[Rfam]
RNA sequence: ACUGGAGGACUAAUCAGAAUGAGUCUGAAGAGUGAGACUCAGAUGACAGUAGCCUCCUAACAGGAAAGUGAUGGAGAGAGCCGUCCUGCUUACAGAAAGGCGAAGGGCUGACUGUGCCAUCCGACAGUU
Numbered sequence: 001a002c003u004g005g006a007g008g009a010c011u012a013a014u015c016a017g018a019a020u021g022a023g024u025c026u027g028a029a030g031a032g033u034g035a036g037a038c039u040c041a042g043a044u045g046a047c048a049g050u051a052g053c054c055u056c057c058u059a060a061c062a063g064g065a066a067a068g069u070g071a072u073g074g075a076g077a078g079a080g081c082c083g084u085c086c087u088g089c090u091u092a093c094a095g096a097a098a099g100g101c102g103a104a105g106g107g108c109u110g111a112c113u114g115u116g117c118c119a120u121c122c123g124a125c126a127g128u129u
Stems, first nucleotide, its partner, number of pairs: 003059001004057005017044001021040006068122001070120001079113002081110001083108005091102001093100001
A member of the RNA family "Small Cajal body specific RNA 4" from Bucorvus abyssinicus, 129 nucleotides long. Rfam classes the family as a small Cajal body RNA. A search with the family's covariance model found it, with a score of 72 bits. The family is grouped with related families in Rfam's "SCARNA4 clan". On this family, see Darzacq et al., EMBO J 2002: "Cajal body-specific small nuclear RNAs: a novel class of 2'-O-methylation and pseudouridylation guide RNAs". The base pairs follow the family's consensus structure, which was predicted with RNAfold. Its family is annotated with Cajal body, nucleolus and RNA processing in the Gene Ontology. Taxonomically the source falls in Bucorvus (Eukaryota, Bilateria, Sarcopterygii, Neoaves). Rfam's curators write: scaRNAs are a specific class of small nuclear RNAs which localise to the Cajal bodies and guide the modification of RNA polymerase II transcribed spliceosomal RNAs U1, U2, U4, U5 and U12. ACA26 belongs to the H/ACA box class of guide RNAs as it has the predicted hairpin-hinge-hairpin-tail structure, conserved H/ACA-box motifs and is found associated with GAR1. The family has 24 seed sequences and 634 matches in Rfam 15.1.